[Rfam]
RNA: Bacterial RNase P class A
Organism: Treponema succinifaciens
RNA sequence: AAUAAGGAUAUGUUGACCGUGCUAAAAGAGAUGAUGAUUUCUUUUUAGUGAGGUAAAGUCCGGGCUCCUCCGGAAAAGAUGCCGGGCAAUAACCGGGCGGAAAAGAAAAACUGCUGGUUUUCAGUAAAGUUUCUUUUCCGACAGAAAGUGCUACAGAAAAUUACCGCCUGUAAUGGGUAAGGGUGAAAAGGCAGGGUAAGAGCCUACCGCGUUUUUGGCAACAGAAACGGCAUAAGUAAACCUCAUCUGGAGCAAAAUCAUAUAGCAGUUUGGUUUUCCGGCCUUAUGCUGCGGGUAGAUUGCUGGAAGUGCUAGGCAACUGGCAUUGCAGAUAGAUGGUCAACACGUUUUUAAUAAAACGUUCCAGAACCCGGCUUAUCAUAUCCUUUUUAUUU
Numbered sequence: 001a002a003u004a005a006g007g008a009u010a011u012g013u014u015g016a017c018c019g020u021g022c023u024a025a026a027a028g029a030g031a032u033g034a035u036g037a038u039u040u041c042u043u044u045u046u047a048g049u050g051a052g053g054u055a056a057a058g059u060c061c062g063g064g065c066u067c068c069u070c071c072g073g074a075a076a077a078g079a080u081g082c083c084g085g086g087c088a089a090u091a092a093c094c095g096g097g098c099g100g101a102a103a104a105g106a107a108a109a110a111c112u113g114c115u116g117g118u119u120u121u122c123a124g125u126a127a128a129g130u131u132u133c134u135u136u137u138c139c140g141a142c143a144g145a146a147a148g149u150g151c152u153a154c155a156g157a158a159a160a161u162u163a164c165c166g167c168c169u170g171u172a173a174u175g176g177g178u179a180a181g182g183g184u185g186a187a188a189a190g191g192c193a194g195g196g197u198a199a200g201a202g203c204c205u206a207c208c209g210c211g212u213u214u215u216u217g218g219c220a221a222c223a224g225a226a227a228c229g230g231c232a233u234a235a236g237u238a239a240a241c242c243u244c245a246u247c248u249g250g251a252g253c254a255a256a257a258u259c260a261u262a263u264a265g266c267a268g269u270u271u272g273g274u275u276u277u278c279c280g281g282c283c284u285u286a287u288g289c290u291g292c293g294g295g296u297a298g299a300u301u302g303c304u305g306g307a308a309g310u311g312c313u314a315g316g317c318a319a320c321u322g323g324c325a326u327u328g329c330a331g332a333u334a335g336a337u338g339g340u341c342a343a344c345a346c347g348u349u350u351u352u353a354a355u356a357a358a359a360c361g362u363u364c365c366a367g368a369a370c371c372c373g374g375c376u377u378a379u380c381a382u383a384u385c386c387u388u389u390u391u392a393u394u395u
Base pairs, nucleotide, nucleotide: 001391002390004388005387006386007385008384009383010382012344013343014342015341016340017339018338020050021049022048023047024046025045026044027043028042056377057376058375060374061373062372063371064370065252066251067250068249073279075277077248078247079246080245081244082096083095084094085093097142098140099139100138101137102136103135104134105133106132107131108130143243144242148241149240150237151236152235164182165181166178167177168176169175170174190208191207193205194204195203209231210229211228212227213226214225215224216223217222256301257300258299259298265292266291267290268289269288272284273283275281308327309326310325311324312323313322314321315320